[Rfam]
RNA sequence: UCUGACACCGUGAUGAGAGCAUAGUUCAGCAGAUGAACCAUGAAGAACAAGAGCAUUUGUCUUUCGCUCCUAGCUGAGUAUCAGC
Numbered sequence: 001u002c003u004g005a006c007a008c009c010g011u012g013a014u015g016a017g018a019g020c021a022u023a024g025u026u027c028a029g030c031a032g033a034u035g036a037a038c039c040a041u042g043a044a045g046a047a048c049a050a051g052a053g054c055a056u057u058u059g060u061c062u063u064u065c066g067c068u069c070c071u072a073g074c075u076g077a078g079u080a081u082c083a084g085c
Stems, first nucleotide, its partner, number of pairs: 004082002007079002